[Rfam]
Annotation: The record is a 116-nucleotide sequence from Psychrosphaera ytuae, which matches "TPP riboswitch aptamer (THI element)" in Rfam.
RNA sequence: UAAAACACCAAGGGGUGUGUCGGCUUUAAUUUUUAAAACCAGACACUGAGACGCUAUGCGAACCCUUAGAACCUGAUCCGGCUUGUACCGGCGUAGGGAUGGUUGUAAUUUAUCCA
Numbered sequence: 001u002a003a004a005a006c007a008c009c010a011a012g013g014g015g016u017g018u019g020u021c022g023g024c025u026u027u028a029a030u031u032u033u034u035a036a037a038a039c040c041a042g043a044c045a046c047u048g049a050g051a052c053g054c055u056a057u058g059c060g061a062a063c064c065c066u067u068a069g070a071a072c073c074u075g076a077u078c079c080g081g082c083u084u085g086u087a088c089c090g091g092c093g094u095a096g097g098g099a100u101g102g103u104u105g106u107a108a109u110u111u112a113u114c115c116a
Stems, first nucleotide, its partner, number of pairs: 007103004011066004016060001017046005053059002072097004078091004
A search with the family's covariance model found it, with a score of 70 bits. The family's consensus secondary structure is taken from published work.